[Rfam]
RNA: c-di-GMP-I riboswitch aptamer
RNA sequence: UGUACGAAAAGGCAAAGUUGCUGAAAAGUGAUGACGCAAAACUGAAGGGGCUAAGGUGACUCUGCUACGCUAGCCAGUUAUCGAA
Numbered sequence: 001u002g003u004a005c006g007a008a009a010a011g012g013c014a015a016a017g018u019u020g021c022u023g024a025a026a027a028g029u030g031a032u033g034a035c036g037c038a039a040a041a042c043u044g045a046a047g048g049g050g051c052u053a054a055g056g057u058g059a060c061u062c063u064g065c066u067a068c069g070c071u072a073g074c075c076a077g078u079u080a081u082c083g084a085a
Base pairs, nucleotide, nucleotide: 012037013036017032018031019030020029021028022027040079041078042077043076047075048074049071050070051069056065057064058063